[Rfam]
RNA sequence: AUUUAUAAUAAUGUAAAUUUUAUGCGGAAAUCCAACCGCGUACAGCCUAGAACGCUGUGAUUUCUUAAGGAGAAAAGAAAAUG
Numbered sequence: 001a002u003u004u005a006u007a008a009u010a011a012u013g014u015a016a017a018u019u020u021u022a023u024g025c026g027g028a029a030a031u032c033c034a035a036c037c038g039c040g041u042a043c044a045g046c047c048u049a050g051a052a053c054g055c056u057g058u059g060a061u062u063u064c065u066u067a068a069g070g071a072g073a074a075a076a077g078a079a080a081a082u083g
Stems, first nucleotide, its partner, number of pairs: 001018006021042007043057004
The record is an 83-nucleotide RNA, which matches "freshwater-2 RNA" in Rfam. It is one of the family's seed sequences. The family's consensus secondary structure is taken from published work. The family's RNA type in Rfam is cis-regulatory element.